[Rfam]
RNA sequence: CGUGUCCUGCGUGACUGGCGAAACAGGUGGUCCACCACCGGGGAGCGCACGGACGUCAAUGCGCCGCUCGCCUGGGCCGACCUU
Numbered sequence: 001c002g003u004g005u006c007c008u009g010c011g012u013g014a015c016u017g018g019c020g021a022a023a024c025a026g027g028u029g030g031u032c033c034a035c036c037a038c039c040g041g042g043g044a045g046c047g048c049a050c051g052g053a054c055g056u057c058a059a060u061g062c063g064c065c066g067c068u069c070g071c072c073u074g075g076g077c078c079g080a081c082c083u084u
Stems, first nucleotide, its partner, number of pairs: 003055005008049005015042002017072005027038004063077003
RNA: ZMP/ZTP riboswitch aptamer (pfl RNA motif)